[Rfam]
RNA: Plastid-psbA-4 3UTR RNA
RNA sequence: UAGUAAAGGAGCAAUAACAAACCUCUUGAUAUAACAAGAAAUUUAUUAUUGCUCCUUUACU
Numbered sequence: 001u002a003g004u005a006a007a008g009g010a011g012c013a014a015u016a017a018c019a020a021a022c023c024u025c026u027u028g029a030u031a032u033a034a035c036a037a038g039a040a041a042u043u044u045a046u047u048a049u050u051g052c053u054c055c056u057u058u059a060c061u
Stems, first nucleotide, its partner, number of pairs: 005058012020043002024039005